Source information
ffh sRNA: a 52-nucleotide RNA sequence from Magnetovibrio blakemorei. Rfam classes the family as a small RNA. The base pairs follow the family's consensus structure, which is taken from published work.
[Rfam]
RNA sequence: CUGCACUGAGGGCACCGCCAGUCCGCGAGUUUCGCGCACUGGCGCGAUUUUC
Numbered sequence: 001c002u003g004c005a006c007u008g009a010g011g012g013c014a015c016c017g018c019c020a021g022u023c024c025g026c027g028a029g030u031u032u033c034g035c036g037c038a039c040u041g042g043c044g045c046g047a048u049u050u051u052c
Stems, first nucleotide, its partner, number of pairs: 016044007025035004
Dot-bracket structure: ...............(((((((..((((...))))..)))))))........